[Rfam]
Rfam assigns this 99-nucleotide RNA sequence from Intrasporangium chromatireducens to the family "Glycine riboswitch aptamer". It scores 63 bits against the family's covariance model. Rfam 15.1 lists 9,425 matches to the family in 5,228 species. From the family's description: This family represents the bacterial glycine riboswitch.

RNA sequence: CGACCCUGCGCGGGAGAGUCCUCGAGGUCCUGUCACCUGCGAGGCGCCGAAGGGGCAACAUCCCCGGAACCUCUCAGGCGCCCGGACUGCGCAGGCGAG
Numbered sequence: 001c002g003a004c005c006c007u008g009c010g011c012g013g014g015a016g017a018g019u020c021c022u023c024g025a026g027g028u029c030c031u032g033u034c035a036c037c038u039g040c041g042a043g044g045c046g047c048c049g050a051a052g053g054g055g056c057a058a059c060a061u062c063c064c065c066g067g068a069a070c071c072u073c074u075c076a077g078g079c080g081c082c083c084g085g086a087c088u089g090c091g092c093a094g095g096c097g098a099g
Stems, first nucleotide, its partner, number of pairs: 006094008020044004046079003049075002053073003059066001